[Rfam]
Nucleotides: 074
Base pairs, nucleotide, nucleotide: 009066010065011064013062014061018057019056023052024051025050026049027048028047029046030045031044033043034042035041
Number, partner (000 for none) and nucleotide at each position: 001000u002000c003000a004000u005000a006000a007000a008000c009066c010065c011064g012000a013062u014061a015000g016000c017000a018057a019056u020000g021000a022000a023052a024051a025050u026049g027048c028047c029046c030045a031044c032000a033043g034042c035041u036000u037000u038000u039000u040000u041035a042034g043033c044031g045030u046029g047028g048027g049026c050025a051024u052023u053000g054000u055000a056019a057018u058000g059000a060000a061014u062013a063000g064011c065010g066009g067000g068000a069000c070000u071000a072000u073000c074000g
Shown here is a 74-nucleotide RNA sequence from Pedobacter cryophilus, a member of the family "Flavo-1 RNA". A search with the family's covariance model found it, with a score of 52 bits. Rfam classes the family as a small RNA. The family's consensus secondary structure is taken from published work. The organism belongs to Pedobacter, within Bacteria.